[Rfam]
RNA: mir-5470 microRNA precursor family
Organism: Ophiophagus hannah
RNA sequence: UUUUCUCCUCCCACAGGAUAUGAGUAACUCUUAUUGAAAUCAUGAGGCAGUUUAUUAUUCACAUCUUGUGGUAAGGGAGUA
Numbered sequence: 001u002u003u004u005c006u007c008c009u010c011c012c013a014c015a016g017g018a019u020a021u022g023a024g025u026a027a028c029u030c031u032u033a034u035u036g037a038a039a040u041c042a043u044g045a046g047g048c049a050g051u052u053u054a055u056u057a058u059u060c061a062c063a064u065c066u067u068g069u070g071g072u073a074a075g076g077g078a079g080u081a
Stems, first nucleotide, its partner, number of pairs: 004078004009073001011071009021061005026052004030047003035042002